[Rfam]
This 97-nucleotide RNA sequence belongs to the Rfam family "PhotoRC-II RNA". The family's consensus secondary structure is taken from published work. It is annotated as a cis-regulatory element.
RNA sequence: UUGCUCAUAUAUUUCCCCUGACCAAGACUAAACGGGGUUAUAAUUAGUCUUCAUCAUGCCUAUAGAUGCAAGGGUACUAUAGGAAAUCAAGUUCUGC
Numbered sequence: 001u002u003g004c005u006c007a008u009a010u011a012u013u014u015c016c017c018c019u020g021a022c023c024a025a026g027a028c029u030a031a032a033c034g035g036g037g038u039u040a041u042a043a044u045u046a047g048u049c050u051u052c053a054u055c056a057u058g059c060c061u062a063u064a065g066a067u068g069c070a071a072g073g074g075u076a077c078u079a080u081a082g083g084a085a086a087u088c089a090a091g092u093u094c095u096g097c
Base pairs, nucleotide, nucleotide: 015037016036017035018034020033025050026049027048028047059083060082061081062080063079064078065077
Dot-bracket structure: ..............((((.(....[[[[....))))).........]]]]........(((((((...........)))))))..............